[Rfam]
RNA: mir-8/mir-141/mir-200 microRNA precursor family
Organism: Scyliorhinus torazame
RNA sequence: GUGGGCAUCUUACUAGACAGUGCUGGAUUGCACUGCUAGGUUCUAACACUGUCUGGUAACGAUGUUUAA
Numbered sequence: 001g002u003g004g005g006c007a008u009c010u011u012a013c014u015a016g017a018c019a020g021u022g023c024u025g026g027a028u029u030g031c032a033c034u035g036c037u038a039g040g041u042u043c044u045a046a047c048a049c050u051g052u053c054u055g056g057u058a059a060c061g062a063u064g065u066u067u068a069a
Stems, first nucleotide, its partner, number of pairs: 002068008010059013024045004
Dot-bracket structure: .(((((((((((((((((((((.((((..............)))).))))))))))))).)))))))).